[Rfam]
Purine riboswitch aptamer: a 102-nucleotide sequence from Lederbergia galactosidilytica.

RNA sequence: UCGACAACAUUAUAGUACACUCAUAUAAUCACAGGGAUAUGGCCUGUAAGUUUCUACCGAUUUACCGUAAAUAAAUCGACUAUGGGUGCAAAGCUUUGAAGA
Number, nucleotide and partner (000 for none) at each position: 001u000002c000003g000004a000005c000006a000007a000008c000009a000010u000011u000012a000013u000014a000015g000016u000017a000018c088019a087020c086021u085022c084023a083024u082025a081026u000027a000028a000029u049030c000031a047032c046033a045034g044035g043036g000037a000038u000039a000040u000041g000042g000043c035044c034045u033046g032047u031048a000049a029050g000051u000052u000053u000054c000055u000056a000057c000058c078059g077060a076061u075062u074063u073064a072065c000066c000067g000068u000069a000070a000071a000072u064073a063074a062075a061076u060077c059078g058079a000080c000081u025082a024083u023084g022085g021086g020087u019088g018089c000090a000091a000092a000093g000094c000095u000096u000097u000098g000099a000100a000101g000102a000
Annotation
Gene Ontology term of the family: purine nucleobase biosynthetic process.